[Rfam]
RNA: Mycobacterium smegmatis small RNA 1
RNA sequence: ACGGAAGCCGGGUGAGGCCAAGGCCGAGCCGGAAGAGAAGGCUCGAUCUCCCGAUCUCGGCUCCCCAGCACGGGUCCCGGAACCCACGCGGCGCACAUGCCGCGGAACGGCAAAAGUGUUGCGGGCCUGCGUAAGUGCGAAGAUCGGAUGACAUCGACGGCCCUUUGGGUGGGGUCGCAGUCGAAGCGGAUCGCACAGGCGCCGAGGCCACCCACGCAACCCCAUACGCACGCAUGGUAACCGGAGGCUCGUGCUCGCGGGCGGCGCGCCGAAGUACUUUUCGAAUUACUUCGGACGCCGCCCGUUUUCUUUU
Numbered sequence: 001a002c003g004g005a006a007g008c009c010g011g012g013u014g015a016g017g018c019c020a021a022g023g024c025c026g027a028g029c030c031g032g033a034a035g036a037g038a039a040g041g042c043u044c045g046a047u048c049u050c051c052c053g054a055u056c057u058c059g060g061c062u063c064c065c066c067a068g069c070a071c072g073g074g075u076c077c078c079g080g081a082a083c084c085c086a087c088g089c090g091g092c093g094c095a096c097a098u099g100c101c102g103c104g105g106a107a108c109g110g111c112a113a114a115a116g117u118g119u120u121g122c123g124g125g126c127c128u129g130c131g132u133a134a135g136u137g138c139g140a141a142g143a144u145c146g147g148a149u150g151a152c153a154u155c156g157a158c159g160g161c162c163c164u165u166u167g168g169g170u171g172g173g174g175u176c177g178c179a180g181u182c183g184a185a186g187c188g189g190a191u192c193g194c195a196c197a198g199g200c201g202c203c204g205a206g207g208c209c210a211c212c213c214a215c216g217c218a219a220c221c222c223c224a225u226a227c228g229c230a231c232g233c234a235u236g237g238u239a240a241c242c243g244g245a246g247g248c249u250c251g252u253g254c255u256c257g258c259g260g261g262c263g264g265c266g267c268g269c270c271g272a273a274g275u276a277c278u279u280u281u282c283g284a285a286u287u288a289c290u291u292c293g294g295a296c297g298c299c300g301c302c303c304g305u306u307u308u309c310u311u312u313u
Stems, first nucleotide, its partner, number of pairs: 003065002006062007016052002021049002025045006067255008077244004084237003088233003093229002098112004118220006124209005129202004135196006144189003149183004158177007257305010269294008